[Rfam]
RNA: mir-1175 microRNA precursor family
Organism: Dendroctonus ponderosae
RNA sequence: UCGAGUAAGUGGAGCAGUGGUCUCUUCACUUUGAUUUAUUAAGUGAGAUUCAACUCCUCCAACUUAUUUUU
Numbered sequence: 001u002c003g004a005g006u007a008a009g010u011g012g013a014g015c016a017g018u019g020g021u022c023u024c025u026u027c028a029c030u031u032u033g034a035u036u037u038a039u040u041a042a043g044u045g046a047g048a049u050u051c052a053a054c055u056c057c058u059c060c061a062a063c064u065u066a067u068u069u070u071u
Stems, first nucleotide, its partner, number of pairs: 007065003010061005017055001018053001023048002026046006